[Rfam]
RNA: Small nucleolar RNA snR191
RNA sequence: UCCCAAUGGUUUAGUCAGGGUACUCCAGCUCUCUCUUCGGAGAGAUACCACACUGUGGGAUGCAUCCGUUACAUCGUUGGGAGAUCAAUAUCCACCUCCCGCGCCCUCGGUUUUCGGAUCGGGGGUGGAGGGUUCCCGUCUUGGGGGCCCUCAUGGGAACCGGACGUGUUCCAUUAGAGUUGAAGACAACCACCACGUAAAUGGGUGGCUCGUGGUCGUUUUCUUAGUAAUGUCUCAUACAUUU
Numbered sequence: 001u002c003c004c005a006a007u008g009g010u011u012u013a014g015u016c017a018g019g020g021u022a023c024u025c026c027a028g029c030u031c032u033c034u035c036u037u038c039g040g041a042g043a044g045a046u047a048c049c050a051c052a053c054u055g056u057g058g059g060a061u062g063c064a065u066c067c068g069u070u071a072c073a074u075c076g077u078u079g080g081g082a083g084a085u086c087a088a089u090a091u092c093c094a095c096c097u098c099c100c101g102c103g104c105c106c107u108c109g110g111u112u113u114u115c116g117g118a119u120c121g122g123g124g125g126u127g128g129a130g131g132g133u134u135c136c137c138g139u140c141u142u143g144g145g146g147g148c149c150c151u152c153a154u155g156g157g158a159a160c161c162g163g164a165c166g167u168g169u170u171c172c173a174u175u176a177g178a179g180u181u182g183a184a185g186a187c188a189a190c191c192a193c194c195a196c197g198u199a200a201a202u203g204g205g206u207g208g209c210u211c212g213u214g215g216u217c218g219u220u221u222u223c224u225u226a227g228u229a230a231u232g233u234c235u236c237a238u239a240c241a242u243u244u
Base pairs, nucleotide, nucleotide: 003080004079005078006077007076018067019066020065021064023062024060025059026058029044030043031042032041033040091164092163093162099128100127101126102125104123105122106121108116109115130150131149132148133147134146135145136144137143138142166238167237168236172232173231174230182223183222184221185220189216190215191214194207195206196205